[Rfam]
Nucleotides: 028
Base pairs, nucleotide, nucleotide: 001028002027003026004025008023010020011019012018013017
Number, partner (000 for none) and nucleotide at each position: 001028u002027a003026a004025c005000c006000u007000c008023u009000g010020g011019c012018g013017a014000a015000a016000a017013u018012c019011g020010u021000g022000g023008a024000u025004g026003u027002u028001g